About this RNA: Small nucleolar RNA SNORD67: a 114-nucleotide RNA sequence from Amphiprion ocellaris. The organism belongs to Amphiprion, within Eukaryota. Rfam classes the family as a C/D-box small nucleolar RNA.
[Rfam]
RNA sequence: GGUGACAGUGAUGAGUUGCACUAUAAGGCAGGUUGCUGAUUGCGGUGGCACAGCGAUCCUGUCCUGAAGAGCCGUGGUGACACCAACAUGUGCACAGGGGCCAUCUGAGUCGCC
Numbered sequence: 001g002g003u004g005a006c007a008g009u010g011a012u013g014a015g016u017u018g019c020a021c022u023a024u025a026a027g028g029c030a031g032g033u034u035g036c037u038g039a040u041u042g043c044g045g046u047g048g049c050a051c052a053g054c055g056a057u058c059c060u061g062u063c064c065u066g067a068a069g070a071g072c073c074g075u076g077g078u079g080a081c082a083c084c085a086a087c088a089u090g091u092g093c094a095c096a097g098g099g100g101c102c103a104u105c106u107g108a109g110u111c112g113c114c
Base pairs, nucleotide, nucleotide: 004113007110024067026065027064028062029061030060031059033056034055035054041050042049043048

Pairs were carried over by alignment from the consensus structure. Rfam links the family to the GO terms nucleolus and RNA processing. Rfam 15.1 lists 781 matches to the family in 618 species. Rfam's curators write: snoRNA HBII-166 belongs to the C/D family of snoRNAs. It scores 61 bits against the family's covariance model.